[Rfam]
RNA: Glycine riboswitch aptamer
Organism: Paragemmobacter aquarius
RNA sequence: UCAUCAGAUUCGGGAGAAUCCGGUUGCAUGCAGCCGGUGCCGAAGGAGCAACCGCCCCGGUAAACUCUCAGGCGCAAGGGACCGUUUCUGACAC
Numbered sequence: 001u002c003a004u005c006a007g008a009u010u011c012g013g014g015a016g017a018a019u020c021c022g023g024u025u026g027c028a029u030g031c032a033g034c035c036g037g038u039g040c041c042g043a044a045g046g047a048g049c050a051a052c053c054g055c056c057c058c059g060g061u062a063a064a065c066u067c068u069c070a071g072g073c074g075c076a077a078g079g080g081a082c083c084g085u086u087u088c089u090g091a092c093a094c
Stems, first nucleotide, its partner, number of pairs: 006089003011084003020037004039073003042069002046067003052060002